The record is a 186-nucleotide RNA from Populus trichocarpa, which matches "MIR159 microRNA precursor family" in Rfam. On this family, see Sunkar and Zhu, Plant Cell 2004: "Novel and stress-regulated microRNAs and other small RNAs from Arabidopsis". Its family is annotated with miRNA-mediated post-transcriptional gene silencing and RISC complex in the Gene Ontology. Taxonomically the source falls in Populus (Eukaryota, Streptophyta, fabids, Malpighiales).
[Rfam]
RNA sequence: GAUUAGGGAGUGGAGCUCCUUGAAGUCCAAUAGAGGUUCUUGCUGGGUAGAUUAAGCUGCUAAGCUAUGGAUCCACAGUCCUAUCUAUCAACCGAAGGAUAGGUUUGCGGCUUGCAUAUCUCAGGAGCUUUAUUGCCUAAUGUUAGAUCCCUUUUUGGAUUGAAGGGAGCUCUAAACCCAUAACCC
Dot-bracket structure: ............((((((((...((((((......(....................((.((....((((....(...................................)....))))....)).)).....................)......))))))...))))))))..............